RNA: TPP riboswitch aptamer (THI element)
RNA sequence: UUAAUUUGCUGGGGGAGCCGAAAGGCUGAGAGAGUUGAACUCGACCCUUGGAACUUGAUACGGUUAAUACCGUCGUAGGGAAGCAAGAUAUAUUCGAU
Numbered sequence: 001u002u003a004a005u006u007u008g009c010u011g012g013g014g015g016a017g018c019c020g021a022a023a024g025g026c027u028g029a030g031a032g033a034g035u036u037g038a039a040c041u042c043g044a045c046c047c048u049u050g051g052a053a054c055u056u057g058a059u060a061c062g063g064u065u066a067a068u069a070c071c072g073u074c075g076u077a078g079g080g081a082a083g084c085a086a087g088a089u090a091u092a093u094u095c096g097a098u
Stems, first nucleotide, its partner, number of pairs: 006086005011048004017026003033041003054079004060073004